[Rfam]
RNA sequence: ACGGUAUCUUUGCUGAACGAACAGCGUUAGAGUGCGGGGGACCCAUUUUUGGGAUUAUCCCUUGGGGUGAAGCAGAAAAAGUCGCAAGGCUUACUGCCAGGAGACUCCAUCCUGAACCCGACAGCUUACCUCGUAGGCCAUAGGAGAAUAAGA
Numbered sequence: 001a002c003g004g005u006a007u008c009u010u011u012g013c014u015g016a017a018c019g020a021a022c023a024g025c026g027u028u029a030g031a032g033u034g035c036g037g038g039g040g041a042c043c044c045a046u047u048u049u050u051g052g053g054a055u056u057a058u059c060c061c062u063u064g065g066g067g068u069g070a071a072g073c074a075g076a077a078a079a080a081g082u083c084g085c086a087a088g089g090c091u092u093a094c095u096g097c098c099a100g101g102a103g104a105c106u107c108c109a110u111c112c113u114g115a116a117c118c119c120g121a122c123a124g125c126u127u128a129c130c131u132c133g134u135a136g137g138c139c140a141u142a143g144g145a146g147a148a149u150a151a152g153a
Stems, first nucleotide, its partner, number of pairs: 012138003034134006044064002065119003073096003099113004
Annotation
c-di-AMP riboswitch aptamer (ydaO/yuaA leader): a 153-nucleotide RNA sequence from Gleimia coleocanis. Rfam's curators write: This family represents a conserved RNA structure found upstream of the ydaO and yuaA genes in Bacillus subtilis and related genes in other bacteria. NCBI's taxonomy places the organism under Bacteria, Bacillati, Actinomycetota, Actinomycetes, Gleimia coleocanis. Rfam links the family to the GO terms regulation of gene expression and cyclic-di-AMP binding. The base pairs follow the family's consensus structure.